[Rfam]
RNA: Bacterial RNase P class A
RNA sequence: UGAGCGAACUGUAUGGUAGCGUGGAUGCUGGUUUCCAGUACAUCCAUGAGGAAAGUCCGAGCAUCGCAGGGUGGGAUAGUUGCUAACGGCAACCGGGGGCGACCCUAGAGCAAGUGCAACAGAGAGAUACCGCUUUCUUCGGAAAGUAAGGGUGGAAAGGCGUGGUAAGAGCACACCAGAGUAUAGGUGACUAUGCUGCUAUGUAAACCUUAUCCGAUGCAACGUCUAUUGGUGCGGCAUUCUAACACUGACCCGGUGGGGAUGGCGUAAUGACGGCUAGAGCUGUGCGGCGACGUACAGUCGAGAUAAAUUACCAUACUCGACAGAACUCGGCUUAUAGGUUCGGUCACACC
Dot-bracket structure: (((.((((((((((((((.((((((((.............))))))))....[[[.[[[[[((((...[[[[.((((((((((.....)))))(((((....)))).)((...(((((...........((((((((....))))))..)).......((.(((.......))).)).((((((((....))))))).)..)))..)))))))))))))...((((..........((..((...((((.]]]]))))..))..)).....))))......((((((((....))))))))..........)))))))..........]]]]]]]].).)))))).)))....
Numbered sequence: 001u002g003a004g005c006g007a008a009c010u011g012u013a014u015g016g017u018a019g020c021g022u023g024g025a026u027g028c029u030g031g032u033u034u035c036c037a038g039u040a041c042a043u044c045c046a047u048g049a050g051g052a053a054a055g056u057c058c059g060a061g062c063a064u065c066g067c068a069g070g071g072u073g074g075g076a077u078a079g080u081u082g083c084u085a086a087c088g089g090c091a092a093c094c095g096g097g098g099g100c101g102a103c104c105c106u107a108g109a110g111c112a113a114g115u116g117c118a119a120c121a122g123a124g125a126g127a128u129a130c131c132g133c134u135u136u137c138u139u140c141g142g143a144a145a146g147u148a149a150g151g152g153u154g155g156a157a158a159g160g161c162g163u164g165g166u167a168a169g170a171g172c173a174c175a176c177c178a179g180a181g182u183a184u185a186g187g188u189g190a191c192u193a194u195g196c197u198g199c200u201a202u203g204u205a206a207a208c209c210u211u212a213u214c215c216g217a218u219g220c221a222a223c224g225u226c227u228a229u230u231g232g233u234g235c236g237g238c239a240u241u242c243u244a245a246c247a248c249u250g251a252c253c254c255g256g257u258g259g260g261g262a263u264g265g266c267g268u269a270a271u272g273a274c275g276g277c278u279a280g281a282g283c284u285g286u287g288c289g290g291c292g293a294c295g296u297a298c299a300g301u302c303g304a305g306a307u308a309a310a311u312u313a314c315c316a317u318a319c320u321c322g323a324c325a326g327a328a329c330u331c332g333g334c335u336u337a338u339a340g341g342u343u344c345g346g347u348c349a350c351a352c353c
Stems, first nucleotide, its partner, number of pairs: 001349003005345006011338001012318007020048008053336003057333005062219004069254004074215005079093005094108001095106004109210002114208002116204003130151002132147006159177002162174003179199001180197007223275004237266002241262002246258004282301008